Shown here is a 73-nucleotide RNA sequence from Sarcophilus harrisii, a member of the family "mir-126 microRNA precursor family".
It is one of the family's seed sequences.
The source organism's lineage runs through Eukaryota, Vertebrata, Tetrapoda, Metatheria and Sarcophilus.
On this family, see Altuvia et al., Nucleic Acids Res 2005: "Clustering and conservation patterns of human microRNAs".
Nucleotides: 073
Stems, first nucleotide, its partner, number of pairs: 009065010021053007029045001
Number, partner (000 for none) and nucleotide at each position: 001000c002000g003000a004000u005000g006000g007000g008000u009065c010064a011063u012062u013061a014060u015059u016058a017057c018056u019000u020000u021053u022052g023051g024050u025049a026048c027047g028000c029045g030000c031000u032000g033000u034000g035000a036000c037000a038000c039000a040000u041000c042000a043000a044000a045029c046000u047027c048026g049025u050024a051023c052022c053021g054000u055000g056018a057017g058016u059015a060014a061013u062012a063011a064010u065009g066000c067000g068000c069000c070000a071000u072000u073000g